A member of the RNA family "Bacterial RNase P class A" from Histophilus somni, 388 nucleotides long. Pairs were carried over by alignment from the consensus structure, which is taken from published work.
RNA sequence: CGAGUUAGUCAGGCAAUCGCUGGUUUGUUGAAAUCUUUAACCGUUUUUAAACGACUUAGAGGCAUAAGUAAACGAGAGGAAAGUCCGGGCUACAUAGGGCAGAGUGCCGGAUAACGUCCGGGAGGCGUGAGUCUACGACCAGUGCAACAGAGAGCAGACCGCCAAUGGCUCGUAAGAGAUCAGGUAAGGGUGAAAGGGUGUGGUAAGAGCACACCGCAUGAAUGGUAACAUUUUAUGGCAUGGUAAACUCCACUCGUAGCAAGACCAAAUAGGAACUCAAUGAGUUGCCCGCUCAGAGUUCGGGUAGGUUGCUUGAGCGUAUGUGUAAAUGUACGCCUAGAUGAAUGAUUGUCCAAGACAGAACCCGGCUUAUCGACUAACUCAACAU
Numbered sequence: 001c002g003a004g005u006u007a008g009u010c011a012g013g014c015a016a017u018c019g020c021u022g023g024u025u026u027g028u029u030g031a032a033a034u035c036u037u038u039a040a041c042c043g044u045u046u047u048u049a050a051a052c053g054a055c056u057u058a059g060a061g062g063c064a065u066a067a068g069u070a071a072a073c074g075a076g077a078g079g080a081a082a083g084u085c086c087g088g089g090c091u092a093c094a095u096a097g098g099g100c101a102g103a104g105u106g107c108c109g110g111a112u113a114a115c116g117u118c119c120g121g122g123a124g125g126c127g128u129g130a131g132u133c134u135a136c137g138a139c140c141a142g143u144g145c146a147a148c149a150g151a152g153a154g155c156a157g158a159c160c161g162c163c164a165a166u167g168g169c170u171c172g173u174a175a176g177a178g179a180u181c182a183g184g185u186a187a188g189g190g191u192g193a194a195a196g197g198g199u200g201u202g203g204u205a206a207g208a209g210c211a212c213a214c215c216g217c218a219u220g221a222a223u224g225g226u227a228a229c230a231u232u233u234u235a236u237g238g239c240a241u242g243g244u245a246a247a248c249u250c251c252a253c254u255c256g257u258a259g260c261a262a263g264a265c266c267a268a269a270u271a272g273g274a275a276c277u278c279a280a281u282g283a284g285u286u287g288c289c290c291g292c293u294c295a296g297a298g299u300u301c302g303g304g305u306a307g308g309u310u311g312c313u314u315g316a317g318c319g320u321a322u323g324u325g326u327a328a329a330u331g332u333a334c335g336c337c338u339a340g341a342u343g344a345a346u347g348a349u350u351g352u353c354c355a356a357g358a359c360a361g362a363a364c365c366c367g368g369c370u371u372a373u374c375g376a377c378u379a380a381c382u383c384a385a386c387a388u
Stems, first nucleotide, its partner, number of pairs: 002383009011373001012353007020076002023073006081371003085368005090259004097290004102255005107121005122136001123134004137250002142248002144244002159189002161185003166182003169178003197215006216239001217237005222231003263310004273301006281295005317336008